[Rfam]
RNA: U2 spliceosomal RNA
RNA sequence: AUCGCUUCUCAGCCUUUUGGCCAAGAUCAAGUGUAGUAUCUGUUCUUAUCAGUUUAAUAUCUAAUAUCUCUAUCUGAGGACAAUAUAUUAAACGGAUUUUUGGAGCAGGGAGAUGGAAUAGGAGCUUGCUCUGUCCAAUCCAUGGAUCAAACUCGUAUUGCAGCACUUUUAGGAAUGGUGCAACCCCU
Number, nucleotide and partner (000 for none) at each position: 001a000002u000003c000004g000005c000006u000007u026008c025009u024010c000011a000012g021013c020014c019015u000016u000017u000018u000019g014020g013021c012022c000023a000024a009025g008026a007027u000028c000029a000030a000031g000032u000033g000034u000035a000036g000037u000038a000039u000040c000041u000042g000043u000044u000045c000046u000047u066048a065049u064050c000051a062052g061053u000054u000055u000056a000057a000058u000059a000060u000061c052062u051063a000064a049065u048066a047067u079068c078069u077070c076071u000072a000073u000074c000075u000076g070077a069078g068079g067080a000081c000082a000083a000084u000085a000086u000087a000088u000089u000090a000091a000092a000093c000094g000095g000096a000097u000098u000099u000100u000101u000102g000103g000104a000105g000106c000107a000108g000109g141110g140111a139112g000113a000114u000115g135116g134117a000118a000119u000120a000121g132122g131123a130124g129125c000126u000127u000128g000129c124130u123131c122132u121133g000134u116135c115136c000137a000138a000139u111140c110141c109142a000143u000144g181145g000146a179147u178148c177149a176150a000151a000152c172153u171154c000155g169156u000157a000158u000159u000160g000161c000162a000163g000164c000165a000166c000167u000168u000169u155170u000171a153172g152173g000174a000175a000176u149177g148178g147179u146180g000181c144182a000183a000184c000185c000186c000187c000188u000